[Rfam]
RNA sequence: UGCGGGACGACCCGCAUUUUCAAGAUCAACGGGGACGGCCCCA
Numbered sequence: 001u002g003c004g005g006g007a008c009g010a011c012c013c014g015c016a017u018u019u020u021c022a023a024g025a026u027c028a029a030c031g032g033g034g035a036c037g038g039c040c041c042c043a
Stems, first nucleotide, its partner, number of pairs: 001016006031042004

Guanidine-II riboswitch aptamer (mini-ykkC): a 43-nucleotide RNA sequence from Pseudaminobacter salicylatoxidans. A search with the family's covariance model found it, with a score of 39 bits. Rfam describes the family as follows. Simpler in structure and has fewer highly conserved nucleotide positions than the ykkC-yxkD leader.